[Rfam]
RNA sequence: GCGCGGCUUCCGUCGAGUCCGGCGUGCCAGCGGCAGCCGGAGCCGGGGACCCAACAGAAACCAUGGGGUGAAUCGGCCCGACUCCCUCACGGGACAGGGGCCGUAGGGCAACCCUUCCGAACCACCCGCCCGAACCCGACAGCUAACCCGGUAGGCGGUACACGGAAGGAGU
Dot-bracket structure: .(((....(((...........................)))((((((....((..........))(((.....((((((..................))))))..((((..................))))...))).........))))))..)))...............
A member of the RNA family "c-di-AMP riboswitch aptamer (ydaO/yuaA leader)", 172 nucleotides long.